[Rfam]
Rfam assigns this 115-nucleotide RNA from Nocardia stercoris to the family "SAM (S-adenosyl methionine) riboswitch aptamer". Its family is annotated with S-adenosylmethionine metabolic process and regulation of gene expression in the Gene Ontology. The match comes from Rfam's covariance-model search (102 bits).

RNA sequence: GGUCAUGAGUACCAGCAUCAAGCCCCGGCUCGCUGGUCGGCAACCCUCUUCCGUAGUGGGGUGCUCCGGGUGACGACCGGGCCGCAGCUGGAGUUCGGUGCGGCAAGUACGGAUU
Number, nucleotide and partner (000 for none) at each position: 001g078002g077003u076004c075005a000006u000007g000008a000009g038010u000011a037012c036013c035014a034015g033016c032017a000018u000019c000020a000021a030022g029023c000024c000025c000026c000027g000028g000029c022030u021031c000032g016033c015034u014035g013036g012037u011038c009039g065040g064041c063042a000043a000044c061045c060046c059047u000048c056049u055050u000051c000052c000053g000054u000055a049056g048057u000058g000059g046060g045061g044062u000063g041064c040065u039066c000067c000068g000069g000070g000071u000072g000073a000074c000075g004076a003077c002078c001079g000080g000081g104082c103083c102084g101085c100086a099087g000088c097089u000090g095091g000092a000093g000094u000095u090096c000097g088098g000099u086100g085101c084102g083103g082104c081105a000106a000107g000108u000109a000110c000111g000112g000113a000114u000115u000